[Rfam]
The record is a 371-nucleotide sequence from Aeromicrobium camelliae, which matches "transfer-messenger RNA" in Rfam. The literature on the family includes a 1996 paper in RNA by Williams and Bartel, "Phylogenetic analysis of tmRNA secondary structure". NCBI's taxonomy places the organism under Bacteria, Bacillati, Propionibacteriales, Nocardioidaceae, Aeromicrobium.

RNA sequence: GGGGCUGAUCGGUUUCGACUGUGGUCGUUCGGAUCAGGAGAAGCGGGUAGAGAAGGCAACGUCAUCUCUUAAACGAUCGUUGCAAACCCAUAAGUGCCGAAUCCAAGCGCACUGACUUCGCCCUCGCUGCCUGACAGCGACUGGUGAAGGGCAGACCCGGGAGCGUCCCCGUCCCGGAUCGUCUGUCUCAUCGAGGGGACUUGCUGGUCACGUCGUGCCGUAGGGCGUGACCGGGACUUUUCUACGGCUGAGCCUGUCGGUGACGCGUUCGUCCGAGCACCGGGGCUGAGAAAAGCGACAGACGGACUGCACCCGGAGAAGUCCUGAUUCAGCGCCAGAGGACCCGGGUUCGAUUCCCGGCAGCUCCACUC
Numbered sequence: 001g002g003g004g005c006u007g008a009u010c011g012g013u014u015u016c017g018a019c020u021g022u023g024g025u026c027g028u029u030c031g032g033a034u035c036a037g038g039a040g041a042a043g044c045g046g047g048u049a050g051a052g053a054a055g056g057c058a059a060c061g062u063c064a065u066c067u068c069u070u071a072a073a074c075g076a077u078c079g080u081u082g083c084a085a086a087c088c089c090a091u092a093a094g095u096g097c098c099g100a101a102u103c104c105a106a107g108c109g110c111a112c113u114g115a116c117u118u119c120g121c122c123c124u125c126g127c128u129g130c131c132u133g134a135c136a137g138c139g140a141c142u143g144g145u146g147a148a149g150g151g152c153a154g155a156c157c158c159g160g161g162a163g164c165g166u167c168c169c170c171g172u173c174c175c176g177g178a179u180c181g182u183c184u185g186u187c188u189c190a191u192c193g194a195g196g197g198g199a200c201u202u203g204c205u206g207g208u209c210a211c212g213u214c215g216u217g218c219c220g221u222a223g224g225g226c227g228u229g230a231c232c233g234g235g236a237c238u239u240u241u242c243u244a245c246g247g248c249u250g251a252g253c254c255u256g257u258c259g260g261u262g263a264c265g266c267g268u269u270c271g272u273c274c275g276a277g278c279a280c281c282g283g284g285g286c287u288g289a290g291a292a293a294a295g296c297g298a299c300a301g302a303c304g305g306a307c308u309g310c311a312c313c314c315g316g317a318g319a320a321g322u323c324c325u326g327a328u329u330c331a332g333c334g335c336c337a338g339a340g341g342a343c344c345c346g347g348g349u350u351c352g353a354u355u356c357c358c359g360g361c362a363g364c365u366c367c368a369c370u371c
Base pairs, nucleotide, nucleotide: 001367002366003365004364005363006362007361019340020339022337023336024335025334028331031330032329033328034327035326036325037324038323039322044315045314046313047312048311049069050068051067052066053065056083057082058081059080060079061078126145127144128143129142150187151186152185153184154183155182157177158176159175160174161173162172165200166199167198168197169196170195204234205233206232207231208230209229210228211227212226217248218247219246220245221244251287252286253285254284255283258282259281260280264275265274267307268306269305270304271303272302273301344360345359346358347357348356